[Rfam]
RNA sequence: UACUCAUCACGAGGGGUGGAGGGACUGGCCCGUUGAAGCCCGGCAACCACCAAGAUUACAGAUUGGCUCGUUCGAAUCUGUAAUUGGAACGGUGCCAAUUCCUGCAGGUGGCGUGCGGCUACCUGACAGAUGAGAG
Numbered sequence: 001u002a003c004u005c006a007u008c009a010c011g012a013g014g015g016g017u018g019g020a021g022g023g024a025c026u027g028g029c030c031c032g033u034u035g036a037a038g039c040c041c042g043g044c045a046a047c048c049a050c051c052a053a054g055a056u057u058a059c060a061g062a063u064u065g066g067c068u069c070g071u072u073c074g075a076a077u078c079u080g081u082a083a084u085u086g087g088a089a090c091g092g093u094g095c096c097a098a099u100u101c102c103u104g105c106a107g108g109u110g111g112c113g114u115g116c117g118g119c120u121a122c123c124u125g126a127c128a129g130a131u132g133a134g135a136g
Stems, first nucleotide, its partner, number of pairs: 001136001003134006013041001015040003021031003025104001027102002042096004047092002050087003100128001105125008
This 136-nucleotide RNA sequence from a Roseiflexaceae bacterium belongs to the Rfam family "SAM riboswitch aptamer (S box leader)". The source organism's lineage runs through Bacteria, Chloroflexota, Chloroflexia, Chloroflexales and Roseiflexaceae. About the family: The SAM riboswitch is found upstream of a number of genes which code for proteins involved in methionine or cysteine biosynthesis in Gram-positive bacteria. The match comes from Rfam's covariance-model search (80 bits).